[Rfam]
RNA: Eukaryotic large subunit ribosomal RNA, nucleotides 845 to 1144
RNA sequence: GAGUCUAACAUCUAUGCGAGUAUUUGAGUGAAAAACUCUGAUGCGCAAUGAAAGUAAAGGUAGUCUUCGGACUGCUGAGGUAGGAAUCCGGUCAAACGGAGGCACUAUCGACCGAUCAUCACUUGUGAAAGAUUUGAGUAAGAGCAUAUCUGUUGGGACCCGAAAGAUGGUGAUCUAUGCCUGAACAGGGUGAAGCCAGGGGAAACUCUGGUGGAGGCUCGUAGCGAUACUGACGUGCAAAUCGUUCGUCUGAUUUGGGUAUAGGGGCGAAAGACUAAUCGAACCAUCUAGUAGCUGGUU
Dot-bracket structure: ....((((((..(((((..(((...((((.....))))...)))...((....)).......................(((((...((..........))....))))).(((((((..(....).....)).))).))....)))))..))))))..((.(...((((((...((((((((((((.((((...(((((((....)))))))....))))...((((.((.((........))))))))..).))))))))))).((.......))......))))))......).))..